[Rfam]
The record is a 47-nucleotide RNA sequence, which matches "gut-2 RNA" in Rfam. It is annotated as a small RNA. Rfam's curators put it in the seed alignment. The base pairs follow the family's consensus structure, which is taken from published work.

RNA sequence: AACCCUGCUCUAAUUGGUGAGCGGGAAGGACCGUUGGGGUCAACUUG
Numbered sequence: 001a002a003c004c005c006u007g008c009u010c011u012a013a014u015u016g017g018u019g020a021g022c023g024g025g026a027a028g029g030a031c032c033g034u035u036g037g038g039g040u041c042a043a044c045u046u047g
Base pairs, nucleotide, nucleotide: 004025005024006023007022008021009020010019029041030040031039032038